[Rfam]
RNA: TPP riboswitch aptamer (THI element)
Organism: Dialister histaminiformans
RNA sequence: GCAGAUUGCUGGGGGAGCCGCAAGGCUGAGAGGUGUAAACCGACCCUUCGAACUUGAAGCAGUUCAUACUGACGUAAGGAAGCAAAGCUAUGGGAUG
Numbered sequence: 001g002c003a004g005a006u007u008g009c010u011g012g013g014g015g016a017g018c019c020g021c022a023a024g025g026c027u028g029a030g031a032g033g034u035g036u037a038a039a040c041c042g043a044c045c046c047u048u049c050g051a052a053c054u055u056g057a058a059g060c061a062g063u064u065c066a067u068a069c070u071g072a073c074g075u076a077a078g079g080a081a082g083c084a085a086a087g088c089u090a091u092g093g094g095a096u097g
Stems, first nucleotide, its partner, number of pairs: 006085005011047004017026003033040002053078004060071003